Rfam assigns this 622-nucleotide sequence to the family "ROOL RNA".
By type it is a small RNA.
RNA sequence: AACUUUAAACUAUAUAGCACUGAACCCAGUGUGCGAAAGCGAAAGCCAAGACCAUGGCUCUGGGAUGUAUUUGAACGAUGCGAGACAGGCUUGAAGGAUACUUUAAGUUCAGGCGUUGUCUGCACAUUAAGUGUGUAGGCGGUUCAUCGGCUGAGAUGAAUAUCAAGGAUGCAGUGCUACUAAUUGUGAGGAUACAGUACAACAAAGGCGUGCCAUCCACAAUAGAAAGGAUACGUGAAAAGCGGAUCCCGAAUCCUAAAACCUAGUGGCGUCGAAAACCAUGUAGUCAGUAGGAAACUCGAACAAGGUGGCGGAACACAAGAAAACGUAUAUAGAAAUAUGUACGAAACAAACGUCAGAAAGUUGGUACAAGUAGCUAAAGCGUGUUCAGUUUAUUUUUGACGCAGAUCAAAACAAGAUCAAUACACUAAGACUGAUUGGAAAAACUGAAUGGUUAGUGAACGUGGCAAGCAUCAAUCUUGUUGCAGCUAAGGGUUCCUUCGGGAAUUGGCAAUGAUAGUCGGAGAACGUACAACUCCAGGCUCAGAUCAUUGUUCUGUAUGACUCAAUCCGUAGCAAUUGGUGUAGUAAGGGGAAGCCCUCUGUGCUGUAUAGUUUUAAG
Numbered sequence: 001a002a003c004u005u006u007a008a009a010c011u012a013u014a015u016a017g018c019a020c021u022g023a024a025c026c027c028a029g030u031g032u033g034c035g036a037a038a039g040c041g042a043a044a045g046c047c048a049a050g051a052c053c054a055u056g057g058c059u060c061u062g063g064g065a066u067g068u069a070u071u072u073g074a075a076c077g078a079u080g081c082g083a084g085a086c087a088g089g090c091u092u093g094a095a096g097g098a099u100a101c102u103u104u105a106a107g108u109u110c111a112g113g114c115g116u117u118g119u120c121u122g123c124a125c126a127u128u129a130a131g132u133g134u135g136u137a138g139g140c141g142g143u144u145c146a147u148c149g150g151c152u153g154a155g156a157u158g159a160a161u162a163u164c165a166a167g168g169a170u171g172c173a174g175u176g177c178u179a180c181u182a183a184u185u186g187u188g189a190g191g192a193u194a195c196a197g198u199a200c201a202a203c204a205a206a207g208g209c210g211u212g213c214c215a216u217c218c219a220c221a222a223u224a225g226a227a228a229g230g231a232u233a234c235g236u237g238a239a240a241a242g243c244g245g246a247u248c249c250c251g252a253a254u255c256c257u258a259a260a261a262c263c264u265a266g267u268g269g270c271g272u273c274g275a276a277a278a279c280c281a282u283g284u285a286g287u288c289a290g291u292a293g294g295a296a297a298c299u300c301g302a303a304c305a306a307g308g309u310g311g312c313g314g315a316a317c318a319c320a321a322g323a324a325a326a327c328g329u330a331u332a333u334a335g336a337a338a339u340a341u342g343u344a345c346g347a348a349a350c351a352a353a354c355g356u357c358a359g360a361a362a363g364u365u366g367g368u369a370c371a372a373g374u375a376g377c378u379a380a381a382g383c384g385u386g387u388u389c390a391g392u393u394u395a396u397u398u399u400u401g402a403c404g405c406a407g408a409u410c411a412a413a414a415c416a417a418g419a420u421c422a423a424u425a426c427a428c429u430a431a432g433a434c435u436g437a438u439u440g441g442a443a444a445a446a447c448u449g450a451a452u453g454g455u456u457a458g459u460g461a462a463c464g465u466g467g468c469a470a471g472c473a474u475c476a477a478u479c480u481u482g483u484u485g486c487a488g489c490u491a492a493g494g495g496u497u498c499c500u501u502c503g504g505g506a507a508u509u510g511g512c513a514a515u516g517a518u519a520g521u522c523g524g525a526g527a528a529c530g531u532a533c534a535a536c537u538c539c540a541g542g543c544u545c546a547g548a549u550c551a552u553u554g555u556u557c558u559g560u561a562u563g564a565c566u567c568a569a570u571c572c573g574u575a576g577c578a579a580u581u582g583g584u585g586u587a588g589u590a591a592g593g594g595g596a597a598g599c600c601c602u603c604u605g606u607g608c609u610g611u612a613u614a615g616u617u618u619u620a621a622g
Stems, first nucleotide, its partner, number of pairs: 007619003011615001017609001021605002025064005044059005066173006081115002084109001086107001091106006116142011145158004181583001183581001185579001191572001197566001200366004207357005212312004217308002234244003254295005263286003267281003272302004313388002316385002328345007370464001376459005447547003470481002485560003488508001496506003510557002514553001519549001520544001522541001523539001525537002591602004
Background
From the family's description: Firmicutes, Fusobacteria (1 example), Tenericutes (1 example).